RNA sequence: GAGCAGUCGGAAGGGGGGCCGUUACACUGUAAGAGAGUAAGUAGCAGGUCUCACAGUGAACCGGUCUCUUUUCUUAUUGUUUC
Numbered sequence: 001g002a003g004c005a006g007u008c009g010g011a012a013g014g015g016g017g018g019c020c021g022u023u024a025c026a027c028u029g030u031a032a033g034a035g036a037g038u039a040a041g042u043a044g045c046a047g048g049u050c051u052c053a054c055a056g057u058g059a060a061c062c063g064g065u066c067u068c069u070u071u072u073c074u075u076a077u078u079g080u081u082u083c
Stems, first nucleotide, its partner, number of pairs: 006077002009074002015068007025058006033052003
RNA: mir-128 microRNA precursor family